[Rfam]
RNA sequence: GUGCUUGAACUCUUAGAGUAAGGAAAUUAAAUACAGGAAGUGAUAUUCCUGAUUAUCACGCAAUUUUUUGCGAGGGUAAAGGUCUUCCGCGGCGUUUAUCCUACUUUUGAUAAACCGCCGGCAGUGUGAGAUCUGCCCU
Numbered sequence: 001g002u003g004c005u006u007g008a009a010c011u012c013u014u015a016g017a018g019u020a021a022g023g024a025a026a027u028u029a030a031a032u033a034c035a036g037g038a039a040g041u042g043a044u045a046u047u048c049c050u051g052a053u054u055a056u057c058a059c060g061c062a063a064u065u066u067u068u069u070g071c072g073a074g075g076g077u078a079a080a081g082g083u084c085u086u087c088c089g090c091g092g093c094g095u096u097u098a099u100c101c102u103a104c105u106u107u108u109g110a111u112a113a114a115c116c117g118c119c120g121g122c123a124g125u126g127u128g129a130g131a132u133c134u135g136c137c138c139u
Stems, first nucleotide, its partner, number of pairs: 004023003008019001034051006073139005080134007089122001090120005096113005
The family of this 139-nucleotide sequence from Trichinella sp. T6 is "U12 minor spliceosomal RNA". Gene Ontology terms of the family: U12 snRNP, pre-mRNA branch point binding and mRNA branch site recognition. Rfam 15.1 lists 2,106 matches to the family in 1,170 species. It is annotated as a spliceosomal small nuclear RNA. The pairing is the family consensus, mapped onto this sequence. It scores 62 bits against the family's covariance model.